[Rfam]
RNA: DUF3577 RNA
RNA sequence: CGAAUCGGAUAUGCGUGAGCAAUCACGCGAAACUCGCCUGUAAUCCCGGCAUCACCGCAUCGCGGUGUGGCGACUCUCUCAAACACUGCACAAUGAUGCAGCACUCUC
Numbered sequence: 001c002g003a004a005u006c007g008g009a010u011a012u013g014c015g016u017g018a019g020c021a022a023u024c025a026c027g028c029g030a031a032a033c034u035c036g037c038c039u040g041u042a043a044u045c046c047c048g049g050c051a052u053c054a055c056c057g058c059a060u061c062g063c064g065g066u067g068u069g070g071c072g073a074c075u076c077u078c079u080c081a082a083a084c085a086c087u088g089c090a091c092a093a094u095g096a097u098g099c100a101g102c103a104c105u106c107u108c
Base pairs, nucleotide, nucleotide: 013028014027015026016025017024018023034073035072036071037070038069053067054066055065056064057063058062086101087100088099089098